mir-204 microRNA precursor family: an 88-nucleotide RNA sequence from Xenopus laevis.
[Rfam]
RNA sequence: GUGUGACCCAUGGGCUUCCCUUUGUCAUCCUAUGCCUGAGAAUACUGGAGAGGCAGGGACAGCAAAGGGAUGCUCAGAAUUCACCCAC
Numbered sequence: 001g002u003g004u005g006a007c008c009c010a011u012g013g014g015c016u017u018c019c020c021u022u023u024g025u026c027a028u029c030c031u032a033u034g035c036c037u038g039a040g041a042a043u044a045c046u047g048g049a050g051a052g053g054c055a056g057g058g059a060c061a062g063c064a065a066a067g068g069g070a071u072g073c074u075c076a077g078a079a080u081u082c083a084c085c086c087a088c
Stems, first nucleotide, its partner, number of pairs: 017070006024063002028059004034054004
On this family, see Murchison et al., Genome Res 2008: "Conservation of small RNA pathways in platypus".
A search with the family's covariance model found it, with a score of 90 bits.